The record is an 89-nucleotide RNA from Caenorhabditis briggsae, which matches "mir-244 microRNA precursor family" in Rfam.
[Rfam]
RNA sequence: CCAAAUUUCUCGAUUUCUUUGGUUGUACAAAGUGGUAUGGCUCUCUUGCUCAUACCGCUUUACAGCUAAAGGAAUCGAUUGAUUUUGGA
Numbered sequence: 001c002c003a004a005a006u007u008u009c010u011c012g013a014u015u016u017c018u019u020u021g022g023u024u025g026u027a028c029a030a031a032g033u034g035g036u037a038u039g040g041c042u043c044u045c046u047u048g049c050u051c052a053u054a055c056c057g058c059u060u061u062a063c064a065g066c067u068a069a070a071g072g073a074a075u076c077g078a079u080u081g082a083u084u085u086u087g088g089a
Stems, first nucleotide, its partner, number of pairs: 001088005010078005016072010029061011040049002
The family has 4 seed sequences and 9 matches in Rfam 15.1.
Its family is annotated with miRNA-mediated post-transcriptional gene silencing and RISC complex in the Gene Ontology.
A reference for the family is de Wit et al. (2009), "Repertoire and evolution of miRNA genes in four divergent nematode species", Genome Res.